[Rfam]
RNA sequence: UGGGAGGCUGAUACACACAUCGGGCUGCAGUGCUGCUCUAACUGUCACCAUCCCCCCUCGAAUAAACGGCCUUUUGAGGACCAGGAUGAAUUGAGAGAAAUCGUAACAGACAGAUACAGGCAGACAGCU
Numbered sequence: 001u002g003g004g005a006g007g008c009u010g011a012u013a014c015a016c017a018c019a020u021c022g023g024g025c026u027g028c029a030g031u032g033c034u035g036c037u038c039u040a041a042c043u044g045u046c047a048c049c050a051u052c053c054c055c056c057c058u059c060g061a062a063u064a065a066a067c068g069g070c071c072u073u074u075u076g077a078g079g080a081c082c083a084g085g086a087u088g089a090a091u092u093g094a095g096a097g098a099a100a101u102c103g104u105a106a107c108a109g110a111c112a113g114a115u116a117c118a119g120g121c122a123g124a125c126a127g128c129u
Stems, first nucleotide, its partner, number of pairs: 002057003006053002015045003022038004067123001069121004081109001086104004
Small Cajal body specific RNA 8: a 129-nucleotide sequence from Cnephaeus nilssonii.
Rfam links the family to the GO terms nucleolus, RNA processing and Cajal body.
It is annotated as a small Cajal body RNA.
For this family Rfam cites "Cajal body-specific small nuclear RNAs: a novel class of 2'-O-methylation and pseudouridylation guide RNAs" (Darzacq et al., EMBO J, 2002).
About the family: scaRNAs are a specific class of small nuclear RNAs which localise to the Cajal bodies and guide the modification of RNA polymerase II transcribed spliceosomal RNAs U1, U2, U4, U5 and U12. U92 belong to the H/ACA box class of guide RNAs as it has the predicted hairpin-hinge-hairpin-tail structure, conserved H/ACA-box motifs and is found associated with GAR1.
Rfam 15.1 lists 955 matches to the family in 741 species.